[Rfam]
RNA sequence: GCGGGGCUUCGUGGCGGGCGCUUGUUAGUCAGCUUCUUGACCGCGGGUGUGGAGGAGAGAGAUUGAUCGGGAUCGGCCCCCAGCCGACGACCGGACGUCCAAACCAAGUGGCACUUCGCUAGAGGCUGUUUCCCGGAAAGGCGGCAGUCUCGGGCGGAGGGCGGACCGGAGGGACAGAGGCCCGAAAGGGAGCAGGCAAUAGUCCCCGCGCGUCACAGUGGUUGGAUCGCGUCUGGAGGUUGGGGAAUGGUUCCGCCCUCGAAUCCACAUUUUU
Numbered sequence: 001g002c003g004g005g006g007c008u009u010c011g012u013g014g015c016g017g018g019c020g021c022u023u024g025u026u027a028g029u030c031a032g033c034u035u036c037u038u039g040a041c042c043g044c045g046g047g048u049g050u051g052g053a054g055g056a057g058a059g060a061g062a063u064u065g066a067u068c069g070g071g072a073u074c075g076g077c078c079c080c081c082a083g084c085c086g087a088c089g090a091c092c093g094g095a096c097g098u099c100c101a102a103a104c105c106a107a108g109u110g111g112c113a114c115u116u117c118g119c120u121a122g123a124g125g126c127u128g129u130u131u132c133c134c135g136g137a138a139a140g141g142c143g144g145c146a147g148u149c150u151c152g153g154g155c156g157g158a159g160g161g162c163g164g165a166c167c168g169g170a171g172g173g174a175c176a177g178a179g180g181c182c183c184g185a186a187a188g189g190g191a192g193c194a195g196g197c198a199a200u201a202g203u204c205c206c207c208g209c210g211c212g213u214c215a216c217a218g219u220g221g222u223u224g225g226a227u228c229g230c231g232u233c234u235g236g237a238g239g240u241u242g243g244g245g246a247a248u249g250g251u252u253c254c255g256c257c258c259u260c261g262a263a264u265c266c267a268c269a270u271u272u273u274u
Stems, first nucleotide, its partner, number of pairs: 001044003004023004009018002028041003045272009057260003061256001068255008077245003081242005091236008099225002102223005108216005114210001116208001117156004122151009132141002163206002167202001175196001181190003